The family of this 123-nucleotide RNA sequence from Gossypium harknessii is "MIR7504 microRNA precursor family".
A search with the family's covariance model found it, with a score of 89 bits.
The family has 8 seed sequences and 7,343 matches in Rfam 15.1.
Gene Ontology terms of the family: RISC complex and miRNA-mediated post-transcriptional gene silencing.
RNA sequence: AACGAGAGAAUAAUAAAUUAAAUUUUUUCUCCUGAUUUUCUGCUUUUUCCUUUUGAAAAAUUUCAAAUCAAACUAAAAACACUAAAAGUCAGGAAGAAAAAUCUGACUUAUUAUUUUCCCAUU
Numbered sequence: 001a002a003c004g005a006g007a008g009a010a011u012a013a014u015a016a017a018u019u020a021a022a023u024u025u026u027u028u029c030u031c032c033u034g035a036u037u038u039u040c041u042g043c044u045u046u047u048u049c050c051u052u053u054u055g056a057a058a059a060a061u062u063u064c065a066a067a068u069c070a071a072a073c074u075a076a077a078a079a080c081a082c083u084a085a086a087a088g089u090c091a092g093g094a095a096g097a098a099a100a101a102u103c104u105g106a107c108u109u110a111u112u113a114u115u116u117u118c119c120c121a122u123u
Stems, first nucleotide, its partner, number of pairs: 001123002004120001006118011018106003022102006030094010042082001045079004